[Rfam]
Overview: mir-30 microRNA precursor family: a 76-nucleotide sequence from Synaphobranchus kaupii. NCBI's taxonomy places the organism under Eukaryota, Deuterostomia, Chordata, Teleostomi, Synaphobranchus. From the family's description: This family consists of the mammalian microRNA (miRNA) precursor mir-30a. Animal miRNAs are transcribed as ~70nt precursors and subsequently processed by the Dicer enzyme to give a ~22nt product. For this family Rfam cites "Identification of novel genes coding for small expressed RNAs" (Lagos-Quintana et al., Science, 2001). Rfam links the family to the GO terms RISC complex and gene silencing by miRNA.

RNA sequence: CCAGGAAGUGUAAACAUCCUACACUCUCAGCUGUGGCCGUGUGGGAGGCUGGGGGCGGGGUGUUUGCGCUCUCUGG
Numbered sequence: 001c002c003a004g005g006a007a008g009u010g011u012a013a014a015c016a017u018c019c020u021a022c023a024c025u026c027u028c029a030g031c032u033g034u035g036g037c038c039g040u041g042u043g044g045g046a047g048g049c050u051g052g053g054g055g056c057g058g059g060g061u062g063u064u065u066g067c068g069c070u071c072u073c074u075g076g
Stems, first nucleotide, its partner, number of pairs: 002075004008069013024055009